RNA sequence: UAUUAGGUUGAUGCAAAUGUAAUUGUGAUUUUUGCCAUUAAAAGUAAUUGCAAAAACCACAAUUACAUUUGCACCAACCUAAUA
Numbered sequence: 001u002a003u004u005a006g007g008u009u010g011a012u013g014c015a016a017a018u019g020u021a022a023u024u025g026u027g028a029u030u031u032u033u034g035c036c037a038u039u040a041a042a043a044g045u046a047a048u049u050g051c052a053a054a055a056a057c058c059a060c061a062a063u064u065a066c067a068u069u070u071g072c073a074c075c076a077a078c079c080u081a082a083u084a
Stems, first nucleotide, its partner, number of pairs: 001084010012073016029056007037048004
Dot-bracket structure: ((((((((((.((((((((((((((((.(((((((.((((....)))).))))))).)))))))))))))))).))))))))))

mir-548 microRNA precursor family: an 84-nucleotide RNA from Saimiri boliviensis. Its family is annotated with RISC complex and miRNA-mediated post-transcriptional gene silencing in the Gene Ontology.